RNA sequence: AAAUAUUGAUGGUUCCGAACGUGAAAACCUAAAGGCUUUGGCCUAUGGUUGAGCGUCGAUGGGUAAUACUGGAAACGGUGCUGCCUCCCGUGUUUUGGAAAGGAAUGAUGUAUCAGAGGUA
Numbered sequence: 001a002a003a004u005a006u007u008g009a010u011g012g013u014u015c016c017g018a019a020c021g022u023g024a025a026a027a028c029c030u031a032a033a034g035g036c037u038u039u040g041g042c043c044u045a046u047g048g049u050u051g052a053g054c055g056u057c058g059a060u061g062g063g064u065a066a067u068a069c070u071g072g073a074a075a076c077g078g079u080g081c082u083g084c085c086u087c088c089c090g091u092g093u094u095u096u097g098g099a100a101a102g103g104a105a106u107g108a109u110g111u112a113u114c115a116g117a118g119g120u121a
Stems, first nucleotide, its partner, number of pairs: 006112001012106005019056004025050001027049003033044004061086005067080005087098002
Shown here is a 121-nucleotide RNA sequence from Hominibacterium faecale, a member of the family "Molybdenum/Tungsten riboswitch aptamer (Moco RNA motif)". The base pairs follow the family's consensus structure, which is taken from published work. NCBI's taxonomy places the organism under Bacteria, Bacillati, Clostridia, Anaerovoracaceae, Hominibacterium. It scores 64 bits against the family's covariance model.